[Rfam]
RNA sequence: CCAUGGUGGUGGCAGGGGGAAGAUGACAUCACCAUGGUGGUGGCAGG
Numbered sequence: 001c002c003a004u005g006g007u008g009g010u011g012g013c014a015g016g017g018g019g020a021a022g023a024u025g026a027c028a029u030c031a032c033c034a035u036g037g038u039g040g041u042g043g044c045a046g047g
Stems, first nucleotide, its partner, number of pairs: 001037011
Dot-bracket structure: (((((((((((...............)))))))))))..........

Rfam assigns this 47-nucleotide RNA sequence from Salvelinus namaycush to the family "Prion pseudoknot". About the family: This family represents a predicted pseudoknot structure found in prion protein mRNA. It has been suggested that the family has a possible effect in prion protein translation. Gene Ontology term of the family: translation. The family's RNA type in Rfam is cis-regulatory element. A reference for the family is Barrette et al. (2001), "Pseudoknots in prion protein mRNAs confirmed by comparative sequence analysis and pattern searching", Nucleic Acids Res.